Rfam assigns this 52-nucleotide RNA sequence from Rubrimonas cliftonensis to the family "ffh sRNA". The match comes from Rfam's covariance-model search (41 bits). The family's consensus secondary structure is taken from published work. The family's RNA type in Rfam is small RNA.
[Rfam]
Nucleotides: 052
Stems, first nucleotide, its partner, number of pairs: 016044007025035004
Number, partner (000 for none) and nucleotide at each position: 001000c002000c003000c004000g005000u006000u007000g008000g009000g010000g011000a012000u013000c014000g015000c016044c017043c018042c019041c020040g021039g022038u023000c024000a025035g026034c027033g028032c029000g030000u031000c032028g033027c034026g035025c036000c037000c038022g039021c040020c041019g042018g043017g044016g045000c046000c047000g048000u049000g050000g051000c052000c